Notes:
A member of the RNA family "Small nucleolar RNA snoR138" from Arabis alpina, 157 nucleotides long. Rfam 15.1 lists 308 matches to the family in 168 species. The base pairs follow the family's consensus structure, which was predicted with mfold. The organism belongs to Arabis, within Eukaryota. Gene Ontology terms of the family: RNA processing and nucleolus. A search with the family's covariance model found it, with a score of 119 bits. A reference for the family is Chen and Wu (2009), "Mining small RNA sequencing data: a new approach to identify small nucleolar RNAs in Arabidopsis", Nucleic Acids Res. Rfam classes the family as an H/ACA-box small nucleolar RNA.
[Rfam]
RNA sequence: AUAGCUUCCGAAUAAUGAGAAAGUGAAAUAUAGGAACACUUUCUGGUUCAGACAGAGGCUUAUAUCAAAACUCUCGAAUCAGUUUUUGAUGGUGAAAAAACUUUUUUUUUUUACCAUCAAAAUAUUCUUCCUUUUCUUUGGAUAGAUUCGAAUAUUU
Numbered sequence: 001a002u003a004g005c006u007u008c009c010g011a012a013u014a015a016u017g018a019g020a021a022a023g024u025g026a027a028a029u030a031u032a033g034g035a036a037c038a039c040u041u042u043c044u045g046g047u048u049c050a051g052a053c054a055g056a057g058g059c060u061u062a063u064a065u066c067a068a069a070a071c072u073c074u075c076g077a078a079u080c081a082g083u084u085u086u087u088g089a090u091g092g093u094g095a096a097a098a099a100a101c102u103u104u105u106u107u108u109u110u111u112u113a114c115c116a117u118c119a120a121a122a123u124a125u126u127c128u129u130c131c132u133u134u135u136c137u138u139u140g141g142a143u144a145g146a147u148u149c150g151a152a153u154a155u156u157u
Stems, first nucleotide, its partner, number of pairs: 003060006014048003018044004023039003075150006083121002088118003092115001095112006129142003